RNA: Burkholderia sRNA 25
RNA sequence: UCUGCUUGCCCAAGCAGACUUUUUCAUCAAGGAAAAGACGUCUCCAAACCUUUGUCAACGCGGCCUUCCAGCCGCGUUUUUUUUGC
Numbered sequence: 001u002c003u004g005c006u007u008g009c010c011c012a013a014g015c016a017g018a019c020u021u022u023u024u025c026a027u028c029a030a031g032g033a034a035a036a037g038a039c040g041u042c043u044c045c046a047a048a049c050c051u052u053u054g055u056c057a058a059c060g061c062g063g064c065c066u067u068c069c070a071g072c073c074g075c076g077u078u079u080u081u082u083u084u085g086c
Stems, first nucleotide, its partner, number of pairs: 001018007019037007057078008
Dot-bracket structure: (((((((....)))))))(((((((.....)))))))...................((((((((......))))))))........